[Rfam]
RNA: Alphaproteobacteria transfer-messenger RNA
RNA sequence: CCCCUUGCGCCGCCCUCUCCAGUUCCCUAUCUGUAAAGUGUCCUUCGGGACUAUGGACAUAAACGCGCUCGUAAUAAGCGGAUCGGACCCGGGGGCGGUACCCGGCGUCUCCACCAAAACCUGCUCAUUUGGCAGCAAUGGGGACGAAAUAGGAUCGACGAACGUCUAAAGGGGUUUUGCUUUGUCCCGGUGAGUUACCACCGUUAUCGGUACAACAAAGCUAGUUGCAAAUGACAACAAAGCACCGAUGGCACUCGCAGCGUAAGCUGUGCGUAAUAUCGAAACCUUAAGCCCUAUGGUUUUGCGACCAUAGGCGGGGUCCGCAGGUACCUGGCAACAGAAACCUGCACC
Numbered sequence: 001c002c003c004c005u006u007g008c009g010c011c012g013c014c015c016u017c018u019c020c021a022g023u024u025c026c027c028u029a030u031c032u033g034u035a036a037a038g039u040g041u042c043c044u045u046c047g048g049g050a051c052u053a054u055g056g057a058c059a060u061a062a063a064c065g066c067g068c069u070c071g072u073a074a075u076a077a078g079c080g081g082a083u084c085g086g087a088c089c090c091g092g093g094g095g096c097g098g099u100a101c102c103c104g105g106c107g108u109c110u111c112c113a114c115c116a117a118a119a120c121c122u123g124c125u126c127a128u129u130u131g132g133c134a135g136c137a138a139u140g141g142g143g144a145c146g147a148a149a150u151a152g153g154a155u156c157g158a159c160g161a162a163c164g165u166c167u168a169a170a171g172g173g174g175u176u177u178u179g180c181u182u183u184g185u186c187c188c189g190g191u192g193a194g195u196u197a198c199c200a201c202c203g204u205u206a207u208c209g210g211u212a213c214a215a216c217a218a219a220g221c222u223a224g225u226u227g228c229a230a231a232u233g234a235c236a237a238c239a240a241a242g243c244a245c246c247g248a249u250g251g252c253a254c255u256c257g258c259a260g261c262g263u264a265a266g267c268u269g270u271g272c273g274u275a276a277u278a279u280c281g282a283a284a285c286c287u288u289a290a291g292c293c294c295u296a297u298g299g300u301u302u303u304g305c306g307a308c309c310a311u312a313g314g315c316g317g318g319g320u321c322c323g324c325a326g327g328u329a330c331c332u333g334g335c336a337a338c339a340g341a342a343a344c345c346u347g348c349a350c351c
Stems, first nucleotide, its partner, number of pairs: 040051004055187005065180002067175004079164002083161003089105005106146007188203004194213002197211003317332004323348006